RNA sequence: AAUAUUACACUAACAGAGACACUGACUUGGAUAUGUAAUGCAGUAAGUGCUUCUUUUUGGUGUAUUAUUG
Numbered sequence: 001a002a003u004a005u006u007a008c009a010c011u012a013a014c015a016g017a018g019a020c021a022c023u024g025a026c027u028u029g030g031a032u033a034u035g036u037a038a039u040g041c042a043g044u045a046a047g048u049g050c051u052u053c054u055u056u057u058u059g060g061u062g063u064a065u066u067a068u069u070g
Base pairs, nucleotide, nucleotide: 004066006064007063008062009061010060011059013057015054016053017052018051020049021048022047023046025044026043027042
The record is a 70-nucleotide RNA from Gouania willdenowi, which matches "miR-430 microRNA precursor family" in Rfam. It scores 62 bits against the family's covariance model. NCBI's taxonomy places the organism under Eukaryota, Neopterygii, Euacanthomorphacea, Percomorphaceae, Gouania. Rfam links the family to the GO terms miRNA-mediated post-transcriptional gene silencing and RISC complex. Rfam 15.1 lists 24,817 matches to the family in 105 species.